[Rfam]
RNA: ffh sRNA
Organism: Azospirillum sp. TSH58
RNA sequence: CGUGCCGGGGACCUCCGCCAGUCCGCGAGUUUCGCGCACUGGCUCGUUUGUG
Number, nucleotide and partner (000 for none) at each position: 001c000002g000003u000004g000005c000006c000007g000008g000009g000010g000011a000012c000013c000014u000015c000016c000017g043018c042019c041020a040021g039022u038023c000024c000025g035026c034027g033028a032029g000030u000031u000032u028033c027034g026035c025036g000037c000038a022039c021040u020041g019042g018043c017044u000045c000046g000047u000048u000049u000050g000051u000052g000